Record summary: The record is a 119-nucleotide RNA from Oryza sativa, which matches "U5 spliceosomal RNA" in Rfam. NCBI's taxonomy places the organism under Eukaryota, Tracheophyta, Magnoliopsida, Oryza, Oryza sativa. It is annotated as a spliceosomal small nuclear RNA.
RNA sequence: AGCUGCGUGGUGAGCACAAAGCGAACUAUUCUUUCGCCUUUUACUAAAGAAUACCGUGUGCGCGCCACAUUAAGCAGCAUACGCUAAUUUUUGGAGGGCGCCCUCUCUCAGAGAGGGCC
Numbered sequence: 001a002g003c004u005g006c007g008u009g010g011u012g013a014g015c016a017c018a019a020a021g022c023g024a025a026c027u028a029u030u031c032u033u034u035c036g037c038c039u040u041u042u043a044c045u046a047a048a049g050a051a052u053a054c055c056g057u058g059u060g061c062g063c064g065c066c067a068c069a070u071u072a073a074g075c076a077g078c079a080u081a082c083g084c085u086a087a088u089u090u091u092u093g094g095a096g097g098g099c100g101c102c103c104u105c106u107c108u109c110a111g112a113g114a115g116g117g118c119c
Stems, first nucleotide, its partner, number of pairs: 003077004008067005014061005027053008100118006